[Rfam]
RNA sequence: UGCAGUGCAGUAUUCAAAGAGGUAGCAGUCACUUUGUACUAAGAGUAACUGCGGCCUUUCUGAAUAGAGUAAUGUUCA
Numbered sequence: 001u002g003c004a005g006u007g008c009a010g011u012a013u014u015c016a017a018a019g020a021g022g023u024a025g026c027a028g029u030c031a032c033u034u035u036g037u038a039c040u041a042a043g044a045g046u047a048a049c050u051g052c053g054g055c056c057u058u059u060c061u062g063a064a065u066a067g068a069g070u071a072a073u074g075u076u077c078a
Base pairs, nucleotide, nucleotide: 002075003074004073006071007070008069011066012065013064014063015062016061018059019058021055025052026051027050028049029048031046032045033044
Overview:
This 78-nucleotide sequence from Peromyscus maniculatus belongs to the Rfam family "mir-881 microRNA precursor family". Rfam links the family to the GO terms RISC complex, female sex differentiation and miRNA-mediated post-transcriptional gene silencing. It scores 77 bits against the family's covariance model. NCBI's taxonomy places the organism under Eukaryota, Vertebrata, Theria, Glires, Peromyscus maniculatus.